[Rfam]
RNA sequence: AUCAGGGGAUGUUCGAUUAAAACCGGCGCGUCCUGCGCCAACAUCGAACGACCUGCGUCCUGCAGG
Numbered sequence: 001a002u003c004a005g006g007g008g009a010u011g012u013u014c015g016a017u018u019a020a021a022a023c024c025g026g027c028g029c030g031u032c033c034u035g036c037g038c039c040a041a042c043a044u045c046g047a048a049c050g051a052c053c054u055g056c057g058u059c060c061u062g063c064a065g066g
Base pairs, nucleotide, nucleotide: 011049012048013047014046015045016044017043025039026038027037028036029035052066053065054064055063056062